Small nucleolar RNA Z159/U59: a 93-nucleotide RNA from Triticum urartu. By type it is a C/D-box small nucleolar RNA. The match comes from Rfam's covariance-model search (65 bits). The family's consensus secondary structure was predicted with PFOLD. Rfam 15.1 lists 1,401 matches to the family in 272 species. A reference for the family is Chen et al. (2003), "The high diversity of snoRNAs in plants: identification and comparative study of 120 snoRNA genes from Oryza sativa", Nucleic Acids Res.

RNA sequence: GCUUCCCGAUGAUGAUCAAACUAUACUUUCGUUCUUCUGAUGUGCUAUCUUGGUGCUGUGCGGAAGCAAUUUGGAGACCUGAGCUGAGGAAAU
Numbered sequence: 001g002c003u004u005c006c007c008g009a010u011g012a013u014g015a016u017c018a019a020a021c022u023a024u025a026c027u028u029u030c031g032u033u034c035u036u037c038u039g040a041u042g043u044g045c046u047a048u049c050u051u052g053g054u055g056c057u058g059u060g061c062g063g064a065a066g067c068a069a070u071u072u073g074g075a076g077a078c079c080u081g082a083g084c085u086g087a088g089g090a091a092a093u
Stems, first nucleotide, its partner, number of pairs: 003091004